[Rfam]
RNA sequence: UGGUCGGGAGGCACCCAGUGGGAUGGGUGCCAAGAAUUGGCCGAAACGAUCUGUUCUCAGGGCUCUGCACCGUCGCCCAACGGUGUAGCA
Numbered sequence: 001u002g003g004u005c006g007g008g009a010g011g012c013a014c015c016c017a018g019u020g021g022g023a024u025g026g027g028u029g030c031c032a033a034g035a036a037u038u039g040g041c042c043g044a045a046a047c048g049a050u051c052u053g054u055u056c057u058c059a060g061g062g063c064u065c066u067g068c069a070c071c072g073u074c075g076c077c078c079a080a081c082g083g084u085g086u087a088g089c090a
Stems, first nucleotide, its partner, number of pairs: 001043005010031008065088008
The family of this 90-nucleotide RNA sequence from Octadecabacter antarcticus is "Rhodo-rpoB RNA". Lineage of the source: Bacteria > Pseudomonadati > Pseudomonadota > Octadecabacter > Octadecabacter antarcticus.